Background: A member of the RNA family "Erse small RNA" from Enterobacteriaceae bacterium strain FGI 57, 252 nucleotides long. The organism belongs to Enterobacteriaceae, within Bacteria. On this family, see Chen et al., FEBS Lett 2012: "Esre: a novel essential non-coding RNA in Escherichia coli".
RNA sequence: CCGGCAGAACUGCUGGCACCCUAUACCGGCGAUAUCGCCGCUGAAGGCGUCAGUAAAGUUCUGCGUGGCGGCGCGAAAUUCCUGCGGCAGGGCUUUGCGCGUCAGCAGCAUUACGUGGCGGAGGCUGUCACCGAAGAGUGGCGACUGGCCCCCGGCGCGCUGGAAUUAGCCUGGUUUGCUGAAGAGACAAUGGCCGUAGAGCGCGCCGUUGACGCACUGACGAAGCGGCUGGAAAAACUGGAGGGGAAAUGA
Numbered sequence: 001c002c003g004g005c006a007g008a009a010c011u012g013c014u015g016g017c018a019c020c021c022u023a024u025a026c027c028g029g030c031g032a033u034a035u036c037g038c039c040g041c042u043g044a045a046g047g048c049g050u051c052a053g054u055a056a057a058g059u060u061c062u063g064c065g066u067g068g069c070g071g072c073g074c075g076a077a078a079u080u081c082c083u084g085c086g087g088c089a090g091g092g093c094u095u096u097g098c099g100c101g102u103c104a105g106c107a108g109c110a111u112u113a114c115g116u117g118g119c120g121g122a123g124g125c126u127g128u129c130a131c132c133g134a135a136g137a138g139u140g141g142c143g144a145c146u147g148g149c150c151c152c153c154g155g156c157g158c159g160c161u162g163g164a165a166u167u168a169g170c171c172u173g174g175u176u177u178g179c180u181g182a183a184g185a186g187a188c189a190a191u192g193g194c195c196g197u198a199g200a201g202c203g204c205g206c207c208g209u210u211g212a213c214g215c216a217c218u219g220a221c222g223a224a225g226c227g228g229c230u231g232g233a234a235a236a237a238c239u240g241g242a243g244g245g246g247a248a249a250u251g252a
Base pairs, nucleotide, nucleotide: 001244002243005240007081008080009079011077012054013053014052015051016050019047020046022044027040028039029038030037031036062075063074064073065072066071084215085214086213088211089210091207092206093205095203100143101142102141103140104139115128116127117126118125119124148179149178152174153173154172155171159167161165187197188196217231219229221228